Shown here is an 80-nucleotide RNA sequence from Actinoplanes sp. SE50/110, a member of the family "c-di-GMP-I riboswitch aptamer".
RNA sequence: UACCCGAACAGGCAACCUCGUUCCGAUGACGAGGACGCAAAGCCAGGGACCUCCCUGCUGGAGGUUGCCCAGCCGCCGAA
Numbered sequence: 001u002a003c004c005c006g007a008a009c010a011g012g013c014a015a016c017c018u019c020g021u022u023c024c025g026a027u028g029a030c031g032a033g034g035a036c037g038c039a040a041a042g043c044c045a046g047g048g049a050c051c052u053c054c055c056u057g058c059u060g061g062a063g064g065u066u067g068c069c070c071a072g073c074c075g076c077c078g079a080a
Base pairs, nucleotide, nucleotide: 012038013037017033018032019031020030021029022028042073043072046070047069048068049065050064051063052062053061054060

A search with the family's covariance model found it, with a score of 43 bits.